Description:
The family of this 129-nucleotide RNA sequence from Terrabacter aerolatus is "FMN riboswitch aptamer (RFN element)". For this family Rfam cites "An mRNA structure that controls gene expression by binding FMN" (Winkler et al., Proc Natl Acad Sci U S A, 2002). NCBI's taxonomy places the organism under Bacteria, Bacillati, Actinomycetes, Micrococcales, Terrabacter. Pairs were carried over by alignment from the consensus structure, which is taken from published work.
[Rfam]
RNA sequence: UACGUGCUCCGGGGUCGGUGUAAUUCCGAGCCGGCGGUGACAGUCCGCGACCCGACCGCAUCCAGCGGCCGGUUGACCUGGUGAAACUCCGGGACCGACGGUGAAAGUCCGGAUGGGAGGCAGCACGAA
Numbered sequence: 001u002a003c004g005u006g007c008u009c010c011g012g013g014g015u016c017g018g019u020g021u022a023a024u025u026c027c028g029a030g031c032c033g034g035c036g037g038u039g040a041c042a043g044u045c046c047g048c049g050a051c052c053c054g055a056c057c058g059c060a061u062c063c064a065g066c067g068g069c070c071g072g073u074u075g076a077c078c079u080g081g082u083g084a085a086a087c088u089c090c091g092g093g094a095c096c097g098a099c100g101g102u103g104a105a106a107g108u109c110c111g112g113a114u115g116g117g118a119g120g121c122a123g124c125a126c127g128a129a
Stems, first nucleotide, its partner, number of pairs: 003127006009120002016028003030108002032097002034048004043095002052072002077093005099111003